[Rfam]
RNA sequence: AUACUAUGAUGGUUGCAUAGUUCAGCAGAUUGUAUCAUGAAGAUGAGAACAUUUGUCUGAUGUAUCU
Numbered sequence: 001a002u003a004c005u006a007u008g009a010u011g012g013u014u015g016c017a018u019a020g021u022u023c024a025g026c027a028g029a030u031u032g033u034a035u036c037a038u039g040a041a042g043a044u045g046a047g048a049a050c051a052u053u054u055g056u057c058u059g060a061u062g063u064a065u066c067u
Stems, first nucleotide, its partner, number of pairs: 001065004006038005013028004041054005